[Rfam]
RNA sequence: AUAAUAUUUAAAGCGCCAGGACUUAAAGAUAGGUUUAUCUUUAAGUUGACGAGGACAGGGUUUAUCGAAGUAUCGGCGGGUGCCCUGCGGUGAAACUACCACCGAUAAAGAUUCCUACAAAACCUGUAAGCAAUUACAGGAACAAAGGGAAUCGGGUAGUUAAA
Numbered sequence: 001a002u003a004a005u006a007u008u009u010a011a012a013g014c015g016c017c018a019g020g021a022c023u024u025a026a027a028g029a030u031a032g033g034u035u036u037a038u039c040u041u042u043a044a045g046u047u048g049a050c051g052a053g054g055a056c057a058g059g060g061u062u063u064a065u066c067g068a069a070g071u072a073u074c075g076g077c078g079g080g081u082g083c084c085c086u087g088c089g090g091u092g093a094a095a096c097u098a099c100c101a102c103c104g105a106u107a108a109a110g111a112u113u114c115c116u117a118c119a120a121a122a123c124c125u126g127u128a129a130g131c132a133a134u135u136a137c138a139g140g141a142a143c144a145a146a147g148g149g150a151a152u153c154g155g156g157u158a159g160u161u162a163a164a
Stems, first nucleotide, its partner, number of pairs: 020047008029038001056087005065076004088104005110153006123140007
Shown here is a 164-nucleotide RNA from Caldisalinibacter kiritimatiensis, a member of the family "glmS glucosamine-6-phosphate activated ribozyme aptamer".
On this family, see Hampel and Tinsley, Biochemistry 2006: "Evidence for preorganization of the glmS ribozyme ligand binding pocket".
It scores 136 bits against the family's covariance model.